Shown here is an 81-nucleotide RNA from Clupea harengus, a member of the family "mir-26 microRNA precursor family".
Its family is annotated with RISC complex and miRNA-mediated post-transcriptional gene silencing in the Gene Ontology.
RNA sequence: CUCCUACCUGAUUCAAGUAAUCCAGGAUAGGCUGUAAACACUGAAGUCGGCCUGUUCUUGGUUACUUGCACCGGGUUUCAG
Numbered sequence: 001c002u003c004c005u006a007c008c009u010g011a012u013u014c015a016a017g018u019a020a021u022c023c024a025g026g027a028u029a030g031g032c033u034g035u036a037a038a039c040a041c042u043g044a045a046g047u048c049g050g051c052c053u054g055u056u057c058u059u060g061g062u063u064a065c066u067u068g069c070a071c072c073g074g075g076u077u078u079c080a081g
Stems, first nucleotide, its partner, number of pairs: 002080001007075004012070001014068009024058010
The source organism's lineage runs through Eukaryota, Opisthokonta, Eumetazoa, Clupeinae and Clupea.